[Rfam]
RNA sequence: UGGGAGGCUGAUACACAAUUAGGGAUAACUCUGCUCUAAUUGUCACAUGUUCUCCCUAUAUUAAAACUGCCUUCUGAUGACCGGGACGAAAUGAGGGAAAUCGUAACGGACAGAUA
Numbered sequence: 001u002g003g004g005a006g007g008c009u010g011a012u013a014c015a016c017a018a019u020u021a022g023g024g025a026u027a028a029c030u031c032u033g034c035u036c037u038a039a040u041u042g043u044c045a046c047a048u049g050u051u052c053u054c055c056c057u058a059u060a061u062u063a064a065a066a067c068u069g070c071c072u073u074c075u076g077a078u079g080a081c082c083g084g085g086a087c088g089a090a091a092u093g094a095g096g097g098a099a100a101u102c103g104u105a106a107c108g109g110a111c112a113g114a115u116a
Stems, first nucleotide, its partner, number of pairs: 002056006015043004022036003081109003086104004
Dot-bracket structure: .((((((.......((((...(((.........)))...)))).......))))))........................(((..((((...........))))..))).......
Rfam assigns this 116-nucleotide RNA sequence from Arenaria interpres to the family "Small Cajal body specific RNA 8".
The match comes from Rfam's covariance-model search (106 bits).
The organism belongs to Arenaria, within Eukaryota.
Gene Ontology terms of the family: Cajal body, RNA processing and nucleolus.
On this family, see Darzacq et al., EMBO J 2002: "Cajal body-specific small nuclear RNAs: a novel class of 2'-O-methylation and pseudouridylation guide RNAs".